The record is a 101-nucleotide RNA, which matches "Glycine riboswitch aptamer" in Rfam.
The match comes from Rfam's covariance-model search (64 bits).

[Rfam]
RNA sequence: GAGUCCCGACUGGGAGAGACCGGGCCGUGUUCGUGCACGUGCCCGGCGCCGAAGGAGCAACCGCCCCGGAAUCUCUCAGGCAAACGGACCGGGCGGGACGG
Numbered sequence: 001g002a003g004u005c006c007c008g009a010c011u012g013g014g015a016g017a018g019a020c021c022g023g024g025c026c027g028u029g030u031u032c033g034u035g036c037a038c039g040u041g042c043c044c045g046g047c048g049c050c051g052a053a054g055g056a057g058c059a060a061c062c063g064c065c066c067c068g069g070a071a072u073c074u075c076u077c078a079g080g081c082a083a084a085c086g087g088a089c090c091g092g093g094c095g096g097g098a099c100g101g
Stems, first nucleotide, its partner, number of pairs: 006096003010092004020046006048081003051077002055075003061069002